[Rfam]
RNA: Metazoan signal recognition particle RNA
Organism: Phaethon lepturus
Nucleotides: 291
Base pairs, nucleotide, nucleotide: 001045002044003043004023005022006021007020008019009018010017011016028042030040047289048288049287050286051285052284053283054282059278061276062275063274064273067268068267069266070265071264072263073262078261079260080259082257083256084255085254086247087246088245089244095241097239099237100236101235102234103230104229106228108226109225112221113220116218117217118216119215120214121160122159123158126155127154128153129152130151131150132149133148134147135146136145137144138143161167162166169212170211171210172209173208179204180203181202182201187196188195189194
Number, partner (000 for none) and nucleotide at each position: 001045g002044c003043c004023g005022g006021g007020c008019a009018c010017g011016g012000u013000g014000g015000c016011u017010u018009g019008u020007g021006c022005c023004u024000g025000u026000a027000a028042u029000g030040c031000a032000a033000g034000c035000g036000c037000c038000g039000g040030g041000g042028a043003g044002g045001c046000u047289g048288a049287a050286a051285c052284u053283g054282g055000u056000g057000g058000a059278u060000g061276g062275c063274u064273u065000g066000a067268g068267c069266c070265u071264g072263g073262g074000g075000g076000u077000u078261c079260u080259g081000g082257g083256c084255u085254g086247c087246u088245g089244u090000g091000c092000u093000g094000a095241g096000g097239g098000a099237g100236c101235g102234u103230c104229c105000g106228c107000a108226c109225u110000a111000a112221g113220g114000c115000c116218g117217g118216c119215a120214u121160g122159g123158a124000u125000a126155u127154g128153g129152u130151g131150g132149u133148c134147c135146u136145c137144g138143g139000g140000g141000a142000g143138c144137u145136g146135g147134g148133g149132g150131c151130u152129a153128c154127c155126a156000g157000c158123u159122c160121c161167c162166c163000u164000a165000a166162g167161g168000a169212g170211g171210g172209g173208u174000g175000a176000a177000c178000c179204g180203g181202c182201c183000c184000a185000g186000g187196u188195u189194g190000g191000a192000g193000a194189c195188g196187g197000a198000g199000c200000a201182g202181g203180u204179c205000a206000a207000a208173g209172c210171u211170c212169c213000c214120g215119u216118g217117c218116c219000a220113u221112c222000a223000u224000c225109a226108g227000c228106g229104g230103g231000a232000u233000g234102g235101c236100g237099c238000c239097u240000g241095u242000a243000a244089a245088c246087a247086g248000u249000c250000c251000c252000u253000g254085u255084a256083g257082c258000a259080c260079a261078g262073c263072c264071c265070g266069g267068g268067u269000g270000g271000g272000a273064g274063a275062g276061u277000g278059g279000g280000a281000c282054c283053c284052a285051g286050u287049u288048u289047c290000c291000u